A member of the RNA family "c-di-GMP-I riboswitch aptamer" from Parasporobacterium paucivorans, 96 nucleotides long.
[Rfam]
RNA sequence: UAAAUAAAUGGGCAAAGCCGAUGAAAAUUGGUGACGCAAAGCUUUAGUCUAAGGCGGUACUAAUAAGUGUUCCGCUAAGAUUGUCAGGUUGCAAUU
Numbered sequence: 001u002a003a004a005u006a007a008a009u010g011g012g013c014a015a016a017g018c019c020g021a022u023g024a025a026a027a028u029u030g031g032u033g034a035c036g037c038a039a040a041g042c043u044u045u046a047g048u049c050u051a052a053g054g055c056g057g058u059a060c061u062a063a064u065a066a067g068u069g070u071u072c073c074g075c076u077a078a079g080a081u082u083g084u085c086a087g088g089u090u091g092c093a094a095u096u
Base pairs, nucleotide, nucleotide: 012037013036017032018031019030020029021028022027040090041089042088043087045086046084047081048080049079054075055074056073057072
GEMM was predicted in a large-scale screen for bacterial structured RNA regulatory elements.
Pairs were carried over by alignment from the consensus structure, which is taken from published work.